[Rfam]
RNA sequence: UGCCAAGAUAGAGGUUGCGGUAGAGACUGAUUUGAACCAAGCCGGCAGGCGUCUGAGGUUUAAAUCGAGCGACAUCGCCGAACUGUCCGAUCAGGCAUGAUCGUGAUGGUGGGCCGACAUAGAAAAUAUGUCGGACUGUCUGCAGAUAACGUGCAGGAGGGCUAUCAGGAAA
Numbered sequence: 001u002g003c004c005a006a007g008a009u010a011g012a013g014g015u016u017g018c019g020g021u022a023g024a025g026a027c028u029g030a031u032u033u034g035a036a037c038c039a040a041g042c043c044g045g046c047a048g049g050c051g052u053c054u055g056a057g058g059u060u061u062a063a064a065u066c067g068a069g070c071g072a073c074a075u076c077g078c079c080g081a082a083c084u085g086u087c088c089g090a091u092c093a094g095g096c097a098u099g100a101u102c103g104u105g106a107u108g109g110u111g112g113g114c115c116g117a118c119a120u121a122g123a124a125a126a127u128a129u130g131u132c133g134g135a136c137u138g139u140c141u142g143c144a145g146a147u148a149a150c151g152u153g154c155a156g157g158a159g160g161g162c163u164a165u166c167a168g169g170a171a172a
Stems, first nucleotide, its partner, number of pairs: 007166005017078005025070001031064008082110006088103006111137002114134008139157006